[Rfam]
RNA sequence: GGAAGAGAGGCAUCCCCGGUGGGGUGGCUGGUCUUCAAAACCAGAGGGGGCCGCCAGCGGUCCCAGGUGGGUUCGACUCCCAUUCUCUUCC
Numbered sequence: 001g002g003a004a005g006a007g008a009g010g011c012a013u014c015c016c017c018g019g020u021g022g023g024g025u026g027g028c029u030g031g032u033c034u035u036c037a038a039a040a041c042c043a044g045a046g047g048g049g050g051c052c053g054c055c056a057g058c059g060g061u062c063c064c065a066g067g068u069g070g071g072u073u074c075g076a077c078u079c080c081c082a083u084u085c086u087c088u089u090c091c
Stems, first nucleotide, its partner, number of pairs: 001091009011026006028044005047064005068082004
Selenocysteine transfer RNA: a 91-nucleotide RNA sequence from Aquitalea sp. FJL05. The base pairs follow the family's consensus structure, which is taken from published work. The match comes from Rfam's covariance-model search (82 bits).